[Rfam]
RNA: tRNA
Organism: Magnaporthiopsis poae
RNA sequence: GACAGCGUGUCCGAGUGGUUAAGGAGUAUGACUCGAAUUCCCCGAAUUCAGAAAUCAUAUGCUUUCGAGCGCACAGGUUCGAGUCCUGUCGCUGUCG
Numbered sequence: 001g002a003c004a005g006c007g008u009g010u011c012c013g014a015g016u017g018g019u020u021a022a023g024g025a026g027u028a029u030g031a032c033u034c035g036a037a038u039u040c041c042c043c044g045a046a047u048u049c050a051g052a053a054a055u056c057a058u059a060u061g062c063u064u065u066c067g068a069g070c071g072c073a074c075a076g077g078u079u080c081g082a083g084u085c086c087u088g089u090c091g092c093u094g095u096c097g
Stems, first nucleotide, its partner, number of pairs: 001096007010025003027059005073089005